[Rfam]
RNA sequence: UCUUUAUCGAGAGUGGUGGAGGGAGAAGGCCCUGCGAAGCCACAGCAACCGGUUCGCCGCAGCAAAAGCUAAGGCGGAUGUCAGGUGCUAAAUCCUUCCCGCCGGAGUCUUUGCGAGGGCGGGAAAGAUGGGGA
Numbered sequence: 001u002c003u004u005u006a007u008c009g010a011g012a013g014u015g016g017u018g019g020a021g022g023g024a025g026a027a028g029g030c031c032c033u034g035c036g037a038a039g040c041c042a043c044a045g046c047a048a049c050c051g052g053u054u055c056g057c058c059g060c061a062g063c064a065a066a067a068g069c070u071a072a073g074g075c076g077g078a079u080g081u082c083a084g085g086u087g088c089u090a091a092a093u094c095c096u097u098c099c100c101g102c103c104g105g106a107g108u109c110u111u112u113g114c115g116a117g118g119g120c121g122g123g124a125a126a127g128a129u130g131g132g133g134a
Stems, first nucleotide, its partner, number of pairs: 001134008013043005021032003026097004044089004049085002051082003093126001098123006
The record is a 134-nucleotide RNA sequence from Trichloromonas acetexigens, which matches "SAM riboswitch aptamer (S box leader)" in Rfam. Rfam describes the family as follows. The SAM riboswitch is found upstream of a number of genes which code for proteins involved in methionine or cysteine biosynthesis in Gram-positive bacteria. Taxonomically the source falls in Trichloromonas (Bacteria, Pseudomonadati, Thermodesulfobacteriota, Desulfuromonadia). Pairs were carried over by alignment from the consensus structure, which is taken from published work.